Description
This 73-nucleotide RNA from an Olavius algarvensis spirochete endosymbiont belongs to the Rfam family "tRNA".
[Rfam]
RNA sequence: GGUGGCGUAGCUCAGUUGGCAGAGCAGUCGGCUCAUAUCCGAUAGGUCGGGGGUUCAAAUCCCUUCGCCACUA
Numbered sequence: 001g002g003u004g005g006c007g008u009a010g011c012u013c014a015g016u017u018g019g020c021a022g023a024g025c026a027g028u029c030g031g032c033u034c035a036u037a038u039c040c041g042a043u044a045g046g047u048c049g050g051g052g053g054u055u056c057a058a059a060u061c062c063c064u065u066c067g068c069c070a071c072u073a
Base pairs, nucleotide, nucleotide: 001072002071003070004069005068006067007066010025011024012023013022027043028042029041030040031039049065050064051063052062053061
NCBI's taxonomy places the organism under Bacteria, Pseudomonadati, Spirochaetota, Spirochaetia, Spirochaetales. The family's RNA type in Rfam is transfer RNA. The family has 954 seed sequences and 5,335,975 matches in Rfam 15.1.